[Rfam]
RNA: Cyano-1 RNA
Organism: Parasynechococcus marenigrum
RNA sequence: CCGAAAGUGAGGAAAAAAUCUCACGGGUUGGAAACAAGGACACAACCCCGUGCGGUUUCGGGA
Numbered sequence: 001c002c003g004a005a006a007g008u009g010a011g012g013a014a015a016a017a018a019u020c021u022c023a024c025g026g027g028u029u030g031g032a033a034a035c036a037a038g039g040a041c042a043c044a045a046c047c048c049c050g051u052g053c054g055g056u057u058u059c060g061g062g063a
Stems, first nucleotide, its partner, number of pairs: 016058005023051005028045003